Overview:
This 160-nucleotide RNA sequence from Ruminococcus sp. AF31-8BH belongs to the Rfam family "Clostridiales-1 RNA". Taxonomically the source falls in Ruminococcus (Bacteria, Bacillota, Clostridia, Oscillospiraceae). A search with the family's covariance model found it, with a score of 94 bits. Pairs were carried over by alignment from the consensus structure, which is taken from published work.
[Rfam]
Nucleotides: 160
Base pairs, nucleotide, nucleotide: 001160002159003158004157005156006155007154008068009067010066011065015061016060018058020056021055022054023053024052025051026050027049030046032043033042034041035040072117074115075114076113077112078111079110082107083106084105085104089100090099091098092097120153121152123150124149125148126147131143132142133141134140
Number, partner (000 for none) and nucleotide at each position: 001160u002159g003158a004157a005156a006155g007154u008068c009067c010066u011065g012000g013000a014000c015061g016060g017000c018058a019000a020056c021055c022054a023053u024052g025051a026050g027049u028000g029000a030046g031000c032043c033042a034041u035040g036000c037000c038000u039000g040035c041034a042033u043032g044000a045000g046030c047000g048000a049027a050026u051025u052024c053023a054022u055021g056020g057000a058018u059000a060016u061015c062000g063000g064000a065011c066010a067009g068008g069000c070000u071000a072117g073000a074115c075114c076113g077112u078111a079110u080000g081000a082107g083106u084105a085104a086000g087000u088000a089100g090099g091098g092097c093000a094000a095000u096000a097092g098091c099090c100089c101000a102000g103000a104085u105084u106083a107082c108000g109000a110079a111078u112077a113076c114075g115074g116000g117072c118000g119000g120153c121152a122000a123150c124149u125148a126147u127000g128000g129000a130000a131143g132142c133141g134140u135000c136000g137000c138000a139000g140134a141133c142132g143131c144000g145000u146000a147126a148125u149124a150123g151000c152121u153120g154007a155006c156005u157004u158003u159002c160001a